[Rfam]
A member of the RNA family "Plastid-ycf2 5UTR RNA" from Quercus lobata, 75 nucleotides long. About the family: Plastid ycf2 is a non-coding RNA (ncRNA) recognised in plastids. It was found in the prime untranslated region (5UTR) of ycf2 genes, it presents a tRNA-like motif which suggests it can be involved in mRNA maturation, particularly involved in defining the precise 5' end of the transcript. By type it is a cis-regulatory element. For this family Rfam cites "Retrograde signaling in plants: A critical review focusing on the GUN pathway and beyond" (Richter et al., Plant Commun, 2023). The family's consensus secondary structure was predicted with LocARNA.
RNA sequence: AUGCAUCCGGUUGGAAUUUAACCUAAGGAUUUGCCAAUUAUAAGUUGAGUGCUUUGACUAUUCAGUCAUGGAUGC
Numbered sequence: 001a002u003g004c005a006u007c008c009g010g011u012u013g014g015a016a017u018u019u020a021a022c023c024u025a026a027g028g029a030u031u032u033g034c035c036a037a038u039u040a041u042a043a044g045u046u047g048a049g050u051g052c053u054u055u056g057a058c059u060a061u062u063c064a065g066u067c068a069u070g071g072a073u074g075c
Base pairs, nucleotide, nucleotide: 003075004074005073006072007071008070011025013023014022040069041068044066045065046064047063048062049061050060051059